[Rfam]
Rfam assigns this 119-nucleotide RNA sequence from Mesobacillus selenatarsenatis to the family "ylbH leader". The base pairs follow the family's consensus structure. NCBI's taxonomy places the organism under Bacteria, Bacillati, Bacillaceae, Mesobacillus, Mesobacillus selenatarsenatis. About the family: This family is a putative regulatory RNA structure that is found upstream of the ylbH gene in B. subtilis and related low GC Gram-positive bacteria. The literature on the family includes a 2004 paper in Proc Natl Acad Sci U S A by Barrick et al., "New RNA motifs suggest an expanded scope for riboswitches in bacterial genetic control". Gene Ontology term of the family: regulation of gene expression.
RNA sequence: AAAAAAAAAGCCCUGCAGUUUCUGCAGGGUCCUUCUAUAUCCUGUCAACAGGAUAGAAGGCAAAGGGAGAGGAGAAACCGGAGGAAGAACUUAUGGGGAAACGUAAGUCUUCUCCGCGG
Number, nucleotide and partner (000 for none) at each position: 001a000002a000003a000004a000005a000006a000007a000008a000009a000010g000011c029012c028013c027014u026015g025016c024017a023018g022019u000020u000021u000022c018023u017024g016025c015026a014027g013028g012029g011030u067031c066032c065033u064034u063035c000036u000037a000038u000039a054040u053041c052042c051043u050044g049045u000046c000047a000048a000049c044050a043051g042052g041053a040054u039055a000056g000057a000058a000059g000060g000061c000062a000063a034064a033065g032066g031067g030068a000069g000070a000071g000072g000073a000074g000075a000076a000077a000078c000079c116080g115081g114082a113083g000084g112085a111086a110087g109088a000089a108090c107091u106092u105093a104094u000095g000096g000097g000098g000099a000100a000101a000102c000103g000104u093105a092106a091107g090108u089109c087110u086111u085112c084113u082114c081115c080116g079117c000118g000119g000